[Rfam]
RNA: sok antitoxin (CssrC)
Organism: Proteus mirabilis
RNA sequence: GGGUGCUUGGAUCGUUUUGGUUCAAGCAUUGCGCUAGAGCCAAAAAGACAAAAGCCCCGAAUUUUAUUUUCAUAAAAUCCGAGGCAGUCUCAAAGCUCAACAACUUGAUUCUGCCUCCUUUAUUAAAAGGAGUCAAUC
Numbered sequence: 001g002g003g004u005g006c007u008u009g010g011a012u013c014g015u016u017u018u019g020g021u022u023c024a025a026g027c028a029u030u031g032c033g034c035u036a037g038a039g040c041c042a043a044a045a046a047g048a049c050a051a052a053a054g055c056c057c058c059g060a061a062u063u064u065u066a067u068u069u070u071c072a073u074a075a076a077a078u079c080c081g082a083g084g085c086a087g088u089c090u091c092a093a094a095g096c097u098c099a100a101c102a103a104c105u106u107g108a109u110u111c112u113g114c115c116u117c118c119u120u121u122a123u124u125a126a127a128a129g130g131a132g133u134c135a136a137u138c
Stems, first nucleotide, its partner, number of pairs: 001058003005055004012048002015045009026034002059080001061078002065076001067074001081117007090108004123131001